[Rfam]
RNA: Mammalian CPEB3 ribozyme
RNA sequence: AGAGGUCAUAAGUUUGAGGGCAUAGCAGAAGCAAUCAUGGUGCAGCCAUAUCAGAUUCCAACAAAUCUGCAAAUUCUGCU
Numbered sequence: 001a002g003a004g005g006u007c008a009u010a011a012g013u014u015u016g017a018g019g020g021c022a023u024a025g026c027a028g029a030a031g032c033a034a035u036c037a038u039g040g041u042g043c044a045g046c047c048a049u050a051u052c053a054g055a056u057u058c059c060a061a062c063a064a065a066u067c068u069g070c071a072a073a074u075u076c077u078g079c080u
Stems, first nucleotide, its partner, number of pairs: 013048001018047002024080007031043003052069006